A member of the RNA family "MIR2912 microRNA precursor family" from Populus tomentosa, 162 nucleotides long. Rfam 15.1 lists 15,051 matches to the family in 15 species. The family's consensus secondary structure was predicted with RNAalifold.
RNA sequence: UUUAGAACUCAAGAUAUGGGCUGAACACUGAACAGUGUCUAGGCUAUAGGACAGAUUUGGAUUUCUCCGUUGUUGCUAUAAUUUGAAUUUGAAAACGGCCUUUUUAAAAUCUUGGACUCCACAUGAAAGUUAUAGGCCUAUGUCUUACCAAAUCUUUCCAAA
Numbered sequence: 001u002u003u004a005g006a007a008c009u010c011a012a013g014a015u016a017u018g019g020g021c022u023g024a025a026c027a028c029u030g031a032a033c034a035g036u037g038u039c040u041a042g043g044c045u046a047u048a049g050g051a052c053a054g055a056u057u058u059g060g061a062u063u064u065c066u067c068c069g070u071u072g073u074u075g076c077u078a079u080a081a082u083u084u085g086a087a088u089u090u091g092a093a094a095a096c097g098g099c100c101u102u103u104u105u106a107a108a109a110u111c112u113u114g115g116a117c118u119c120c121a122c123a124u125g126a127a128a129g130u131u132a133u134a135g136g137c138c139u140a141u142g143u144c145u146u147a148c149c150a151a152a153u154c155u156u157u158c159c160a161a162a
Base pairs, nucleotide, nucleotide: 002161003160005158006157007156009152011146012145013144014143015142016141017140018139019138020137021135022134023133025131027130028129029128035124036123037122042119043118045116048113049112050111051110054105055104059100060099062098063097072088073087074086
NCBI's taxonomy places the organism under Eukaryota, Mesangiospermae, Gunneridae, Malpighiales, Populus. It scores 105 bits against the family's covariance model.